[Rfam]
RNA sequence: GGACGGCACUCCGGAGAAUUCCAUCGCGGCGCAGUUUACACGUCAUGCGGAUGGAUGCCGAAGGUGCAAGCGCGGCUCGCCGCGUCAAUCUCUCAGGCAAAAGGACGGAGGAAGGAUG
Number, nucleotide and partner (000 for none) at each position: 001g000002g000003a000004c000005g000006g000007c000008a000009c110010u109011c108012c107013g106014g000015a000016g000017a000018a000019u000020u055021c054022c053023a052024u051025c050026g000027c000028g000029g000030c000031g000032c000033a000034g000035u000036u000037u000038a000039c000040a000041c000042g000043u000044c000045a000046u000047g000048c000049g000050g025051a024052u023053g022054g021055a020056u000057g098058c097059c096060g094061a093062a000063g000064g092065u000066g090067c000068a000069a000070g085071c084072g083073c082074g000075g000076c000077u000078c000079g000080c000081c000082g073083c072084g071085u070086c000087a000088a000089u000090c066091u000092c064093u061094c060095a000096g059097g058098c057099a000100a000101a000102a000103g000104g000105a000106c013107g012108g011109a010110g009111g000112a000113a000114g000115g000116a000117u000118g000

The family of this 118-nucleotide RNA from Ruminococcus difficilis is "Glycine riboswitch aptamer". This family represents the bacterial glycine riboswitch. It scores 57 bits against the family's covariance model.